[Rfam]
RNA sequence: GAGGUACUUCGAUAGGUGAGGUUCCUACACGAACACAGGCCACUGACCCGACGACGUCGACAGACGCCCAGGGUCAGGACAGGUAUUCCCGGACUAAGGGUCUACCCCAAGUGGCUUUCGGCAGCAGUCGGAUACGUCGUGUAGUGCCAAAGCUCUGACGAGGAAGUACGUC
Numbered sequence: 001g002a003g004g005u006a007c008u009u010c011g012a013u014a015g016g017u018g019a020g021g022u023u024c025c026u027a028c029a030c031g032a033a034c035a036c037a038g039g040c041c042a043c044u045g046a047c048c049c050g051a052c053g054a055c056g057u058c059g060a061c062a063g064a065c066g067c068c069c070a071g072g073g074u075c076a077g078g079a080c081a082g083g084u085a086u087u088c089c090c091g092g093a094c095u096a097a098g099g100g101u102c103u104a105c106c107c108c109a110a111g112u113g114g115c116u117u118u119c120g121g122c123a124g125c126a127g128u129c130g131g132a133u134a135c136g137u138c139g140u141g142u143a144g145u146g147c148c149a150a151a152g153c154u155c156u157g158a159c160g161a162g163g164a165a166g167u168a169c170g171u172c
Stems, first nucleotide, its partner, number of pairs: 005168006011159001013097001015154003020148003025144008039115005045075005055066004082106004088100003117132003

Overview
The family of this 172-nucleotide RNA sequence from Gordonia jinhuaensis is "M-box riboswitch aptamer (ykoK leader)". A reference for the family is Barrick et al. (2004), "New RNA motifs suggest an expanded scope for riboswitches in bacterial genetic control", Proc Natl Acad Sci U S A. Rfam's curators write: M-box riboswitch, also know as ykoK leader is described as a metaloregulatory RNA that sense divalent metals and function as a genetic control element of genes related to divalent metal transport in bacteria. The pairing is the family consensus, mapped onto this sequence. The organism belongs to Gordonia, within Bacteria.